[Rfam]
RNA: Na+ riboswitch aptamer (DUF1646)
Organism: Pelotomaculum propionicicum
RNA sequence: GGUUGGGCGAAUUUUUUUAUUCGUUUUCAAGGUUUAGUCUUCUGGGGUGGGAAGUC
Number, nucleotide and partner (000 for none) at each position: 001g000002g000003u030004u029005g028006g025007g024008c023009g022010a021011a020012u000013u000014u000015u000016u000017u000018u000019a000020u011021u010022c009023g008024u007025u006026u000027u000028c005029a004030a003031g000032g000033u000034u000035u000036a000037g056038u000039c054040u053041u052042c051043u050044g000045g000046g000047g000048u000049g000050g043051g042052a041053a040054g039055u000056c037